Ribosomal S15 leader: a 117-nucleotide sequence from Xenorhabdus bovienii. A search with the family's covariance model found it, with a score of 101 bits. Rfam describes the family as follows. The E. coli Ribosomal S15 gene 5' UTR can form two alternative structures. Gene Ontology term of the family: regulation of translation, ncRNA-mediated. Lineage of the source: Bacteria > Pseudomonadota > Morganellaceae > Xenorhabdus > Xenorhabdus bovienii.

[Rfam]
RNA sequence: AUGAGUUGCUGAAUUAGAGAUUGGCACUCAUGAUUUUUAAUUUAUAUUUGGAGUUAUACUAUGUCUCUAAGUACUGAAGCAAAAGCGCAAAUCGUUGUUGAGUUUGGCCGUGGCACU
Numbered sequence: 001a002u003g004a005g006u007u008g009c010u011g012a013a014u015u016a017g018a019g020a021u022u023g024g025c026a027c028u029c030a031u032g033a034u035u036u037u038u039a040a041u042u043u044a045u046a047u048u049u050g051g052a053g054u055u056a057u058a059c060u061a062u063g064u065c066u067c068u069a070a071g072u073a074c075u076g077a078a079g080c081a082a083a084a085g086c087g088c089a090a091a092u093c094g095u096u097g098u099u100g101a102g103u104u105u106g107g108c109c110g111u112g113g114c115a116c117u
Stems, first nucleotide, its partner, number of pairs: 007026006047071007